[Rfam]
Rfam assigns this 172-nucleotide RNA sequence from Paraburkholderia graminis to the family "Group II catalytic intron D1-D4-3". About the family: Group II introns are found in rRNA, tRNA and mRNA of organelles in fungi, plants and protists, and also in mRNA in bacteria. Taxonomically the source falls in Paraburkholderia graminis (Bacteria, Betaproteobacteria, Burkholderiaceae, Paraburkholderia). Rfam's curators put it in the seed alignment. Pairs were carried over by alignment from the consensus structure.

Nucleotides: 172
Base pairs, nucleotide, nucleotide: 001016002015005012006011028172030170031169032168035165036163040158041157042156043155044154045153046151047150048149049148050147062146063145064144066142067141073138074137075136077134078133079132080131081129082128086114087113088112089111092107093106094105095104
Number, partner (000 for none) and nucleotide at each position: 001016g002015u003000g004000a005012g006011g007000g008000c009000g010000a011006c012005c013000g014000a015002g016001c017000g018000u019000g020000g021000g022000g023000a024000g025000g026000a027000a028172g029000c030170g031169u032168g033000g034000a035165g036163c037000g038000a039000a040158a041157c042156c043155g044154c045153g046151a047150g048149c049148c050147g051000a052000u053000g054000a055000a056000c057000a058000a059000g060000a061000a062146c063145c064144g065000g066142a067141u068000a069000u070000g071000a072000g073138g074137c075136g076000g077134u078133g079132c080131c081129g082128a083000u084000c085000a086114g087113g088112g089111c090000g091000a092107g093106c094105g095104u096000g097000c098000a099000a100000a101000g102000a103000a104095g105094c106093g107092c108000g109000a110000a111089g112088c113087u114086c115000u116000c117000g118000u119000g120000g121000u122000c123000a124000a125000g126000g127000a128082u129081c130000a131080g132079g133078c134077a135000a136075c137074g138073u139000a140000a141067a142066u143000g144064c145063g146062g147050c148049g149048g150047u151046u152000g153045u154044g155043c156042g157041g158040u159000g160000a161000a162000g163036g164000a165035u166000u167000g168032c169031g170030u171000u172028c